Overview:
Rfam assigns this 85-nucleotide RNA from Bombyx mori to the family "mir-2807 microRNA precursor family". The family's consensus secondary structure was predicted with RNAalifold. Lineage of the source: Eukaryota > Ecdysozoa > Pterygota > Ditrysia > Bombyx. Its family is annotated with miRNA-mediated post-transcriptional gene silencing and RISC complex in the Gene Ontology.
[Rfam]
RNA sequence: UUAACUCAAAUUUGUAUAGAGUUGAAAUAGCGCCCCUAGCAGCAAACGCGGGCUAACGUAUCCAACUCCAUACAAAUUUGAGUUA
Number, nucleotide and partner (000 for none) at each position: 001u000002u000003a000004a000005c000006u000007c000008a079009a078010a077011u076012u075013u074014g073015u072016a071017u000018a000019g000020a067021g066022u065023u064024g063025a000026a061027a059028u058029a000030g000031c000032g000033c000034c052035c051036c050037u000038a000039g047040c000041a000042g000043c000044a000045a000046a000047c039048g000049c000050g036051g035052g034053c000054u000055a000056a000057c000058g028059u027060a000061u026062c000063c024064a023065a022066c021067u020068c000069c000070a000071u016072a015073c014074a013075a012076a011077u010078u009079u008080g000081a000082g000083u000084u000085a000